[Rfam]
RNA sequence: CCAGAGGGCCGGGCGGCCGCGGGGCAUUUAUGCCGCGAGGAAAGUCCGGGCUCCAUGGACCCACGGUGCCGGAUAAUGUCCGGCGGGGGCGACCCCAGGGAAAGUGCCACAGAAAGCAGGUUGCCCACGGCUUCGGCCCGGCGAUAGUGAAAGGGUGCGGUAAGAGCGCACCGCGCGCGCCAGCAAUGGCCGCGGCACGGCAAACCCCACCGGGAGCAAGACCGAAUAGGGAUGGCAUAUAGGCCUGGGUCCGGCCUGUCGUCCGGGUUGGUCGCUUGAGGACGGGAGCAAUCCCGUUCCUAGAGGAAUGGUCGCACAGGCGGAGUGAUCCGCUGGACAAAACCCGGCUUACAGGCCCUCUGGCAGU
Numbered sequence: 001c002c003a004g005a006g007g008g009c010c011g012g013g014c015g016g017c018c019g020c021g022g023g024g025c026a027u028u029u030a031u032g033c034c035g036c037g038a039g040g041a042a043a044g045u046c047c048g049g050g051c052u053c054c055a056u057g058g059a060c061c062c063a064c065g066g067u068g069c070c071g072g073a074u075a076a077u078g079u080c081c082g083g084c085g086g087g088g089g090c091g092a093c094c095c096c097a098g099g100g101a102a103a104g105u106g107c108c109a110c111a112g113a114a115a116g117c118a119g120g121u122u123g124c125c126c127a128c129g130g131c132u133u134c135g136g137c138c139c140g141g142c143g144a145u146a147g148u149g150a151a152a153g154g155g156u157g158c159g160g161u162a163a164g165a166g167c168g169c170a171c172c173g174c175g176c177g178c179g180c181c182a183g184c185a186a187u188g189g190c191c192g193c194g195g196c197a198c199g200g201c202a203a204a205c206c207c208c209a210c211c212g213g214g215a216g217c218a219a220g221a222c223c224g225a226a227u228a229g230g231g232a233u234g235g236c237a238u239a240u241a242g243g244c245c246u247g248g249g250u251c252c253g254g255c256c257u258g259u260c261g262u263c264c265g266g267g268u269u270g271g272u273c274g275c276u277u278g279a280g281g282a283c284g285g286g287a288g289c290a291a292u293c294c295c296g297u298u299c300c301u302a303g304a305g306g307a308a309u310g311g312u313c314g315c316a317c318a319g320g321c322g323g324a325g326u327g328a329u330c331c332g333c334u335g336g337a338c339a340a341a342a343c344c345c346g347g348c349u350u351a352c353a354g355g356c357c358c359u360c361u362g363g364c365a366g367u
Stems, first nucleotide, its partner, number of pairs: 001363010011352001013315006020037002023034004042350003046347005051216004062247001064212005069083005084098001085096004099207002104205002106201003121146001123142003129138003154172006173196001174194004179190004220273004230264006241257005280299008
Shown here is a 367-nucleotide RNA sequence from Parasphingopyxis lamellibrachiae, a member of the family "Bacterial RNase P class A". Ribonuclease P (RNase P) is a ubiquitous endoribonuclease, found in archaea, bacteria and eukarya as well as chloroplasts and mitochondria. The family's consensus secondary structure is taken from published work. The source organism's lineage runs through Bacteria, Pseudomonadati, Pseudomonadota, Parasphingopyxidaceae and Parasphingopyxis. The family's RNA type in Rfam is ribozyme.